RNA sequence: UUGAAAUAUUGCGUAGGCAUUGUGCACAGUUGGUCAAUCUCGCUGUGCAUUCUACCUAUACAGUGUUUCGGGCU
Numbered sequence: 001u002u003g004a005a006a007u008a009u010u011g012c013g014u015a016g017g018c019a020u021u022g023u024g025c026a027c028a029g030u031u032g033g034u035c036a037a038u039c040u041c042g043c044u045g046u047g048c049a050u051u052c053u054a055c056c057u058a059u060a061c062a063g064u065g066u067u068u069c070g071g072g073c074u
Stems, first nucleotide, its partner, number of pairs: 001071004006066002010062002013059002016056002019053001022050009
Overview
Rfam assigns this 74-nucleotide RNA from Lottia gigantea to the family "mir-242_2 microRNA precursor family". Rfam 15.1 lists 16 matches to the family in 13 species.